[Rfam]
RNA sequence: AUAGCGGUAUCCGAAAAGCUUUUUUAGAGUAGGAA
Numbered sequence: 001a002u003a004g005c006g007g008u009a010u011c012c013g014a015a016a017a018g019c020u021u022u023u024u025u026a027g028a029g030u031a032g033g034a035a
Stems, first nucleotide, its partner, number of pairs: 003020003010034003
Notes:
Rfam assigns this 35-nucleotide sequence from Chryseobacterium salivictor to the family "DUF805b RNA". Clan: DUF805 clan. It scores 41 bits against the family's covariance model.